A member of the RNA family "Plastid-ycf2 5UTR RNA" from Oryza meyeriana, 75 nucleotides long. From the family's description: Plastid ycf2 is a non-coding RNA (ncRNA) recognised in plastids. It was found in the prime untranslated region (5UTR) of ycf2 genes, it presents a tRNA-like motif which suggests it can be involved in mRNA maturation, particularly involved in defining the precise 5' end of the transcript. Pairs were carried over by alignment from the consensus structure, which was predicted with LocARNA. Rfam classes the family as a cis-regulatory element. Lineage of the source: Eukaryota > Liliopsida > commelinids > Poaceae > Oryza meyeriana. The match comes from Rfam's covariance-model search (77 bits).

[Rfam]
RNA sequence: AUGCAUACAGAAGGAAUUGAACCCGAAAAUUUACCAAUUAUGAGUUGGGCGCUUUAGCCAUUCAGCCAUGGAUGC
Numbered sequence: 001a002u003g004c005a006u007a008c009a010g011a012a013g014g015a016a017u018u019g020a021a022c023c024c025g026a027a028a029a030u031u032u033a034c035c036a037a038u039u040a041u042g043a044g045u046u047g048g049g050c051g052c053u054u055u056a057g058c059c060a061u062u063c064a065g066c067c068a069u070g071g072a073u074g075c
Base pairs, nucleotide, nucleotide: 003075004074005073006072008070013023014022040069041068042067044066045065046064047063048062049061051059